[Rfam]
RNA sequence: GGGCAUAAACGCGCAUGUAAUAAGCGGAUCGGACCCGGGGGCGGUACCCGGCGGCUCCACCAAUCACCCUUUCUUUGGAGGGUCAUGGGGCCGAAAUAGGAUCGACGAACGUGUAAAGAUGUAGCUUUGCUUCGGUGAGAUACCACCGUUAUCGGUUCAUAACGCAUAGUUGCAAAUGACAAUCAUGCUCCGGUGGCCCUCGCCGCGUAA
Numbered sequence: 001g002g003g004c005a006u007a008a009a010c011g012c013g014c015a016u017g018u019a020a021u022a023a024g025c026g027g028a029u030c031g032g033a034c035c036c037g038g039g040g041g042c043g044g045u046a047c048c049c050g051g052c053g054g055c056u057c058c059a060c061c062a063a064u065c066a067c068c069c070u071u072u073c074u075u076u077g078g079a080g081g082g083u084c085a086u087g088g089g090g091c092c093g094a095a096a097u098a099g100g101a102u103c104g105a106c107g108a109a110c111g112u113g114u115a116a117a118g119a120u121g122u123a124g125c126u127u128u129g130c131u132u133c134g135g136u137g138a139g140a141u142a143c144c145a146c147c148g149u150u151a152u153c154g155g156u157u158c159a160u161a162a163c164g165c166a167u168a169g170u171u172g173c174a175a176a177u178g179a180c181a182a183u184c185a186u187g188c189u190c191c192g193g194u195g196g197c198c199c200u201c202g203c204c205g206c207g208u209a210a
Base pairs, nucleotide, nucleotide: 001132002131003130004129005128013122014121015120016119025111026110029108030107031106035051036050037049038048039047052093053092054091055090056089057088058087133148134147135146136145